[Rfam]
RNA sequence: ACUUCCUGAGCCGGAACGAGAAGCUUUUUUUGGAAUGCGUGUUCCAUCAAGCUUUUGGCUUACGGUUGUGAUGUUGUGUUGUUGUGUUUGCAAUUGGUCUGUUUUUGCAGACCCUGGUAGCAAAGCUACCCCUUUUCACUUCCUGUACAUUUACCCUGUCUGUCCAUAGUGAUUUAAUGUAGCACCGCAACGCGCGGUGCUUUUUUUU
Numbered sequence: 001a002c003u004u005c006c007u008g009a010g011c012c013g014g015a016a017c018g019a020g021a022a023g024c025u026u027u028u029u030u031u032g033g034a035a036u037g038c039g040u041g042u043u044c045c046a047u048c049a050a051g052c053u054u055u056u057g058g059c060u061u062a063c064g065g066u067u068g069u070g071a072u073g074u075u076g077u078g079u080u081g082u083u084g085u086g087u088u089u090g091c092a093a094u095u096g097g098u099c100u101g102u103u104u105u106u107g108c109a110g111a112c113c114c115u116g117g118u119a120g121c122a123a124a125g126c127u128a129c130c131c132c133u134u135u136u137c138a139c140u141u142c143c144u145g146u147a148c149a150u151u152u153a154c155c156c157u158g159u160c161u162g163u164c165c166a167u168a169g170u171g172a173u174u175u176a177a178u179g180u181a182g183c184a185c186c187g188c189a190a191c192g193c194g195c196g197g198u199g200c201u202u203u204u205u206u207u208u
Stems, first nucleotide, its partner, number of pairs: 009060004015056002021054006031046006096113007116130006148179004181201008